RNA: Small nucleolar SNORD12/SNORD106
RNA sequence: GUUACUGAUUGUGAUGACUUAAAUCUUUUUUCCCCAGCAGAUCGACCCUGUUGACCUUACUUGAACUAAGCCAAUUUUGUCUGAAUCACCAGU
Numbered sequence: 001g002u003u004a005c006u007g008a009u010u011g012u013g014a015u016g017a018c019u020u021a022a023a024u025c026u027u028u029u030u031u032c033c034c035c036a037g038c039a040g041a042u043c044g045a046c047c048c049u050g051u052u053g054a055c056c057u058u059a060c061u062u063g064a065a066c067u068a069a070g071c072c073a074a075u076u077u078u079g080u081c082u083g084a085a086u087c088a089c090c091a092g093u
Stems, first nucleotide, its partner, number of pairs: 001093003006088004